[Rfam]
RNA sequence: GCAACCUGAAGCUGGCGCACGGCAACAUCGUGGUGUUCCGCUCCAUGCUGGGCAUCUCCUGGAUGUGGUUUUUCGGCGCGGUGUUCCUGGCCAACUUCCCGGCCUUCGCCAAGGAACUGCUG
Dot-bracket structure: .........(((.((.((..((((.(.....).))))..)).))..))).((((..((((.((.(.((...(..(.((.((....)))).)..)...))...).)....).))))..)))).
Numbered sequence: 001g002c003a004a005c006c007u008g009a010a011g012c013u014g015g016c017g018c019a020c021g022g023c024a025a026c027a028u029c030g031u032g033g034u035g036u037u038c039c040g041c042u043c044c045a046u047g048c049u050g051g052g053c054a055u056c057u058c059c060u061g062g063a064u065g066u067g068g069u070u071u072u073u074c075g076g077c078g079c080g081g082u083g084u085u086c087c088u089g090g091c092c093a094a095c096u097u098c099c100c101g102g103c104c105u106u107c108g109c110c111a112a113g114g115a116a117c118u119g120c121u122g
Stems, first nucleotide, its partner, number of pairs: 010049003014044002017041002021037004026032001051121004057115004062110001063105001065103001067099002072094001075091001077089002080087002
Overview: A member of the RNA family "Burkholderia RNA 11" from Ottowia beijingensis, 122 nucleotides long. The organism belongs to Ottowia, within Bacteria. For this family Rfam cites "Experimental identification of small non-coding regulatory RNAs in the opportunistic human pathogen Burkholderia cenocepacia J2315" (Ramos et al., Genomics, 2013). A search with the family's covariance model found it, with a score of 108 bits. Rfam describes the family as follows. Co-purified with Hfq, expression confirmed by Northern blot. Predicted target marZ. Overlaps coding sequence.